RNA sequence: AAAAGUGAUAGAGGAGCAAAACUUAUUAGUAAGAGCUUGGAGAAGAAUGAGUUUCAAUGAAAAGCUAUGAAAGGAAGUUUUGCCGAAGUGGAAAUUGGCUCAUUUCAGUUUCUGCUGGUUCUGCAUUGAAUAAAUGCAGGAUUGUCAAGAUGUGUGAGCAUCUUGGAGAGCUAUCUCGCGG
Dot-bracket structure: ......(((((....(((((((((.......(.(((((.......................))))).)......)))))))))...((((((((((((......))))))))))))(((((((((((.....))))))))))).(((((((........)))))))....)))))......
Overview: Shown here is a 181-nucleotide RNA sequence from Heyndrickxia shackletonii, a member of the family "Lysine riboswitch aptamer". NCBI's taxonomy places the organism under Bacteria, Bacillati, Bacillota, Bacillaceae, Heyndrickxia. Rfam 15.1 lists 3,224 matches to the family in 1,923 species.